TPP riboswitch aptamer (THI element): a 110-nucleotide RNA sequence from Virgibacillus sp. SK37.

RNA sequence: AUGAUCCACUUGGGGUGCCUUUAUAAGGGCUGAGAUUAAAGUGACUAACUUUGAAACUCAAUGAACUUGAGACGGGUAAUACCGUCGUAAGGAAGUGGCAGUAAUUGAUA
Numbered sequence: 001a002u003g004a005u006c007c008a009c010u011u012g013g014g015g016u017g018c019c020u021u022u023a024u025a026a027g028g029g030c031u032g033a034g035a036u037u038a039a040a041g042u043g044a045c046u047a048a049c050u051u052u053g054a055a056a057c058u059c060a061a062u063g064a065a066c067u068u069g070a071g072a073c074g075g076g077u078a079a080u081a082c083c084g085u086c087g088u089a090a091g092g093a094a095g096u097g098g099c100a101g102u103a104a105u106u107g108a109u110a
Stems, first nucleotide, its partner, number of pairs: 006098005011060004016054001017030005037053005066091004072085004
Annotation
The family's consensus secondary structure is taken from published work. Lineage of the source: Bacteria > Bacillati > Bacillota > Bacilli > Virgibacillus. The match comes from Rfam's covariance-model search (80 bits).